The family of this 132-nucleotide RNA sequence from Bacillus smithii is "Group II catalytic intron D1-D4-3".
RNA sequence: GCAAAACACCGGUCCGAGGAACACGAACCUCAUAUAAGGCUAGGUAUGAUUGAGUGAGUUUGCAUAACAAAACAAAGCUCUUUCUGUCGAAGGUCAUAUCGAGUAAAUGAGGCGGAUAGAUGGUGUGAAAGU
Number, nucleotide and partner (000 for none) at each position: 001g132002c131003a000004a000005a000006a126007c125008a124009c123010c122011g121012g117013u116014c115015c114016g113017a000018g000019g000020a000021a000022c000023a000024c000025g000026a000027a000028c112029c111030u110031c109032a108033u107034a000035u000036a000037a000038g000039g104040c103041u102042a000043g100044g099045u098046a097047u096048g095049a094050u000051u000052g080053a079054g078055u077056g000057a000058g073059u072060u071061u070062g000063c000064a000065u000066a000067a000068c000069a000070a061071a060072a059073c058074a000075a000076a000077g055078c054079u053080c052081u000082u000083u000084c000085u000086g000087u000088c000089g000090a000091a000092g000093g000094u049095c048096a047097u046098a045099u044100c043101g000102a041103g040104u039105a000106a000107a033108u032109g031110a030111g029112g028113c016114g015115g014116a013117u012118a000119g000120a000121u011122g010123g009124u008125g007126u006127g000128a000129a000130a000131g002132u001
Description:
Pairs were carried over by alignment from the consensus structure. From the family's description: Group II introns are found in rRNA, tRNA and mRNA of organelles in fungi, plants and protists, and also in mRNA in bacteria.